[Rfam]
RNA sequence: CCAGUCGGCCGGGCAGCCGCGCUCCGCAAAAGGUCGAAAGGCCGCGGGGUGAGGAAAGUCCGGGCUCCACGGAAACACGGUGCCGGAUAACGUCCGGCGGGGGCGACCCUAGGGAAAGUGCCACAGAAAGCAAACCGCCUCGCUCCGGCGAGGUAAGGGUGAAAGGGUGGGGUAAGAGCCCACCGCGUCGCUGGCGACAGGGACGGCACGGUAAACCCCACCGGGAGCAAGACCGAAUAGGGAUGACGCGGCCGCCCGCGAGGGCAGCCAGCCCGUUUCCGGGCCGGUCAUCCGGGUGGGUUGCGCGAGGCGGAACGCAAGUUCCGUCCCAGAUGAAUGGCUGCCGCGUUCGGCGUCUCUCGAGACGUCGGGCCAUACAGAACCCGGCUUACAGGCCGACUGGCAAA
Numbered sequence: 001c002c003a004g005u006c007g008g009c010c011g012g013g014c015a016g017c018c019g020c021g022c023u024c025c026g027c028a029a030a031a032g033g034u035c036g037a038a039a040g041g042c043c044g045c046g047g048g049g050u051g052a053g054g055a056a057a058g059u060c061c062g063g064g065c066u067c068c069a070c071g072g073a074a075a076c077a078c079g080g081u082g083c084c085g086g087a088u089a090a091c092g093u094c095c096g097g098c099g100g101g102g103g104c105g106a107c108c109c110u111a112g113g114g115a116a117a118g119u120g121c122c123a124c125a126g127a128a129a130g131c132a133a134a135c136c137g138c139c140u141c142g143c144u145c146c147g148g149c150g151a152g153g154u155a156a157g158g159g160u161g162a163a164a165g166g167g168u169g170g171g172g173u174a175a176g177a178g179c180c181c182a183c184c185g186c187g188u189c190g191c192u193g194g195c196g197a198c199a200g201g202g203a204c205g206g207c208a209c210g211g212u213a214a215a216c217c218c219c220a221c222c223g224g225g226a227g228c229a230a231g232a233c234c235g236a237a238u239a240g241g242g243a244u245g246a247c248g249c250g251g252c253c254g255c256c257c258g259c260g261a262g263g264g265c266a267g268c269c270a271g272c273c274c275g276u277u278u279c280c281g282g283g284c285c286g287g288u289c290a291u292c293c294g295g296g297u298g299g300g301u302u303g304c305g306c307g308a309g310g311c312g313g314a315a316c317g318c319a320a321g322u323u324c325c326g327u328c329c330c331a332g333a334u335g336a337a338u339g340g341c342u343g344c345c346g347c348g349u350u351c352g353g354c355g356u357c358u359c360u361c362g363a364g365a366c367g368u369c370g371g372g373c374c375a376u377a378c379a380g381a382a383c384c385c386g387g388c389u390u391a392c393a394g395g396c397c398g399a400c401u402g403g404c405a406a407a
Stems, first nucleotide, its partner, number of pairs: 001403010011392001012345007020051008056390003060387005065227004074278002078223005083097005098112001099110004113218002118216002120212003135158002137154007166184006185207001186205004191200003231302004241293006271284004309328008

The record is a 407-nucleotide sequence from Georhizobium profundi, which matches "Bacterial RNase P class A" in Rfam. Its family is annotated with ribonuclease P activity, dimeric ribonuclease P complex and tRNA processing in the Gene Ontology. The base pairs follow the family's consensus structure, which is taken from published work. It scores 300 bits against the family's covariance model. Lineage of the source: Bacteria > Alphaproteobacteria > Hyphomicrobiales > Rhizobiaceae > Georhizobium.